[Rfam]
RNA sequence: GGGCUCCCAGUGCUUACCACAGGCUGUGUUCUAACACUGACUGUGCAGAAAGAGGAGGCAGAGUAAAUCCAUCUCAUAUACACCUUAGCCCAAGCCCUUCACCUGGUCUGCAUUGUGAAUAGGGAGACAUGG
Numbered sequence: 001g002g003g004c005u006c007c008c009a010g011u012g013c014u015u016a017c018c019a020c021a022g023g024c025u026g027u028g029u030u031c032u033a034a035c036a037c038u039g040a041c042u043g044u045g046c047a048g049a050a051a052g053a054g055g056a057g058g059c060a061g062a063g064u065a066a067a068u069c070c071a072u073c074u075c076a077u078a079u080a081c082a083c084c085u086u087a088g089c090c091c092a093a094g095c096c097c098u099u100c101a102c103c104u105g106g107u108c109u110g111c112a113u114u115g116u117g118a119a120u121a122g123g124g125a126g127a128c129a130u131g132g
Base pairs, nucleotide, nucleotide: 002059004057005056006055007054020043021042022041026037027036028035029034072124073123074122076120077119086110087109088108090106091105092104094102
Dot-bracket structure: .(.((((............(((...((((....))))...)))..........)))).)............(((.((........(((.(((.(.......).))).)))........)).)))........